[Rfam]
The record is a 152-nucleotide RNA sequence from Streptomyces sp. WZ.A104, which matches "c-di-AMP riboswitch aptamer (ydaO/yuaA leader)" in Rfam. The match comes from Rfam's covariance-model search (96 bits). Lineage of the source: Bacteria > Actinomycetota > Actinomycetes > Kitasatosporales > Streptomyces. The pairing is the family consensus, mapped onto this sequence.

RNA sequence: CGCGCGCGAGCGCCGAAUCCCGCAAGGGAACCGGGGAACCACCUACAUGGGGUGAAUCGGACGCCUGCGUCUCGUGAGAGACGGAGGGGCCCGUAGGAGACCUUCCUGCUCCGAACCCGUCAGCUAACCCGGUAGGCGAGAAGGAAGGAAAG
Numbered sequence: 001c002g003c004g005c006g007c008g009a010g011c012g013c014c015g016a017a018u019c020c021c022g023c024a025a026g027g028g029a030a031c032c033g034g035g036g037a038a039c040c041a042c043c044u045a046c047a048u049g050g051g052g053u054g055a056a057u058c059g060g061a062c063g064c065c066u067g068c069g070u071c072u073c074g075u076g077a078g079a080g081a082c083g084g085a086g087g088g089g090c091c092c093g094u095a096g097g098a099g100a101c102c103u104u105c106c107u108g109c110u111c112c113g114a115a116c117c118c119g120u121c122a123g124c125u126a127a128c129c130c131g132g133u134a135g136g137c138g139a140g141a142a143g144g145a146a147g148g149a150a151a152g
Base pairs, nucleotide, nucleotide: 011138012137013136014135018029019028020027030133031132032131033130034129035128040049041048050118051117052116058093059092060091096112097111098110099109